Overview
Rfam assigns this 101-nucleotide sequence from Cyanobacteria bacterium FACHB-DQ100 to the family "Guanidine-I riboswitch aptamer". NCBI's taxonomy places the organism under Bacteria, Bacillati, Cyanobacteriota. A search with the family's covariance model found it, with a score of 90 bits.
RNA sequence: UUAAUUUGCUUCUAGGGUUCCGAUUCCUUGAAUGUCUGGUCCGAGAGAAGCAGGCUAACCAAAAAAUGUUGGCUACACGGCGGGAGAAAAGCCCGGGAGGA
Numbered sequence: 001u002u003a004a005u006u007u008g009c010u011u012c013u014a015g016g017g018u019u020c021c022g023a024u025u026c027c028u029u030g031a032a033u034g035u036c037u038g039g040u041c042c043g044a045g046a047g048a049a050g051c052a053g054g055c056u057a058a059c060c061a062a063a064a065a066a067u068g069u070u071g072g073c074u075a076c077a078c079g080g081c082g083g084g085a086g087a088a089a090a091g092c093c094c095g096g097g098a099g100g101a
Base pairs, nucleotide, nucleotide: 007052008051009050010049011048012047015042016041020039021038022036023033024032025031026030053074054073055072056071057070058069059068076096078099082094083093084092

Pairs were carried over by alignment from the consensus structure.